[Rfam]
Rfam assigns this 111-nucleotide RNA sequence from Rheinheimera salexigens to the family "t44 RNA".
Lineage of the source: Bacteria > Pseudomonadati > Pseudomonadota > Chromatiales > Rheinheimera.
RNA sequence: AACAAAACUUAAACAAAACACACAUACAUCGGCACAUGUACCGGGGUGCUUUGCUUAGCGCUUAACCAAAGCCUAAACAGAGUCGGGACAUGGGAUGUAUGGAGGCUUAAC
Numbered sequence: 001a002a003c004a005a006a007a008c009u010u011a012a013a014c015a016a017a018a019c020a021c022a023c024a025u026a027c028a029u030c031g032g033c034a035c036a037u038g039u040a041c042c043g044g045g046g047u048g049c050u051u052u053g054c055u056u057a058g059c060g061c062u063u064a065a066c067c068a069a070a071g072c073c074u075a076a077a078c079a080g081a082g083u084c085g086g087g088a089c090a091u092g093g094g095a096u097g098u099a100u101g102g103a104g105g106c107u108u109a110a111c
Stems, first nucleotide, its partner, number of pairs: 023101008035092005041086003048083005
Dot-bracket structure: ......................((((((((....(((((.(((....(((((..........................)))))))).))))).))))))))..........